[Rfam]
RNA: mir-551 microRNA precursor family
Organism: Danio rerio
RNA sequence: UUGCCUUAGAAACCAAGCAUGGGUGUGGCCUGAAUCCUCCAAUGGCGACCCAUCCUUGGUUUCUGAGGCUG
Numbered sequence: 001u002u003g004c005c006u007u008a009g010a011a012a013c014c015a016a017g018c019a020u021g022g023g024u025g026u027g028g029c030c031u032g033a034a035u036c037c038u039c040c041a042a043u044g045g046c047g048a049c050c051c052a053u054c055c056u057u058g059g060u061u062u063c064u065g066a067g068g069c070u071g
Stems, first nucleotide, its partner, number of pairs: 003069005009063006016056002021051004028046003